[Rfam]
RNA sequence: UCCGUCGCGAGGCGGAAUCUAGAGGAAGCCGAAGGCAAAUGCACGGGCCAAGGUACACGAACCCAAUUUGAGGCAGGAUUAGUCGGAUGAGUUGCCAUAACACAACGAAAUCCAAAGCCGCCAAGGGCUAAUCCUGUAGACUUGGGUGGUCGCGGGCAGACAGAUGACGUU
Number, nucleotide and partner (000 for none) at each position: 001u016002c015003c014004g013005u012006c011007g000008c000009g000010a000011g006012g005013c004014g003015g002016a001017a000018u000019c000020u000021a000022g000023a000024g000025g000026a000027a000028g171029c000030c169031g168032a000033a000034g000035g000036c163037a000038a000039a000040u158041g157042c156043a000044c154045g153046g151047g150048c149049c148050a147051a000052g000053g000054u000055a000056c000057a000058c000059g000060a000061a000062c146063c145064c144065a143066a142067u140068u000069u000070g000071a000072g000073g137074c136075a135076g000077g133078a132079u131080u130081a129082g128083u127084c000085g113086g112087a111088u110089g000090a000091g106092u105093u104094g103095c000096c000097a000098u000099a000100a000101c000102a000103c094104a093105a092106c091107g000108a000109a000110a088111u087112c086113c085114a000115a000116a000117g000118c000119c000120g000121c000122c000123a000124a000125g000126g000127g083128c082129u081130a080131a079132u078133c077134c000135u075136g074137u073138a000139g000140a067141c000142u066143u065144g064145g063146g062147u050148g049149g048150u047151c046152g000153c045154g044155g000156g042157c041158a040159g000160a000161c000162a000163g036164a000165u000166g000167a000168c031169g030170u000171u028
Rfam assigns this 171-nucleotide RNA from Paenibacillus antri to the family "Group II catalytic intron D1-D4-3". The source organism's lineage runs through Bacteria, Bacilli, Caryophanales, Paenibacillaceae and Paenibacillus.